Shown here is a 35-nucleotide RNA from Suricata suricatta, a member of the family "Iron response element I". It is annotated as a cis-regulatory element. On this family, see Hentze et al., Science 1987: "Identification of the iron-responsive element for the translational regulation of human ferritin mRNA". The family's consensus secondary structure is taken from published work. The organism belongs to Suricata, within Eukaryota. Rfam 15.1 lists 6,829 matches to the family in 599 species.
RNA sequence: CUGUAUCCUGCUUCGACCGUGUUUGAAUGGAACAG
Numbered sequence: 001c002u003g004u005a006u007c008c009u010g011c012u013u014c015g016a017c018c019g020u021g022u023u024u025g026a027a028u029g030g031a032a033c034a035g
Stems, first nucleotide, its partner, number of pairs: 001035004006031003010028001012027005017021001